Shown here is a 134-nucleotide sequence from Oryctolagus cuniculus, a member of the family "Small nucleolar RNA SNORA42/SNORA80 family". Rfam describes the family as follows. The members of this family belong to the H/ACA class of snoRNAs that guide the sites of modification of uridines to pseudouridines. The literature on the family includes a 2006 paper in RNA by Schattner et al., "A computational screen for mammalian pseudouridylation guide H/ACA RNAs". A search with the family's covariance model found it, with a score of 96 bits. Rfam 15.1 lists 1,535 matches to the family in 183 species. Gene Ontology terms of the family: nucleolus and RNA processing. The organism belongs to Oryctolagus, within Eukaryota. Pairs were carried over by alignment from the consensus structure, which was predicted with RNAalifold. By type it is an H/ACA-box small nucleolar RNA.
[Rfam]
RNA sequence: GUAUGGGUUUGGAUUUACGGCAGGCCCACUGUCCCGCGCCUCUCAUGGUAUCCCACACCAGAGCGAACUGUGGCCCUGAACCAUUGCCCGGCCUCUGUCCAUGGGGUACUGGCACUCAAGUGGGCUGCACAGUA
Numbered sequence: 001g002u003a004u005g006g007g008u009u010u011g012g013a014u015u016u017a018c019g020g021c022a023g024g025c026c027c028a029c030u031g032u033c034c035c036g037c038g039c040c041u042c043u044c045a046u047g048g049u050a051u052c053c054c055a056c057a058c059c060a061g062a063g064c065g066a067a068c069u070g071u072g073g074c075c076c077u078g079a080a081c082c083a084u085u086g087c088c089c090g091g092c093c094u095c096u097g098u099c100c101a102u103g104g105g106g107u108a109c110u111g112g113c114a115c116u117c118a119a120g121u122g123g124g125c126u127g128c129a130c131a132g133u134a
Stems, first nucleotide, its partner, number of pairs: 001058002004055001005053004015048003019044002022041003026036001071127006083116001087112002090107001092105003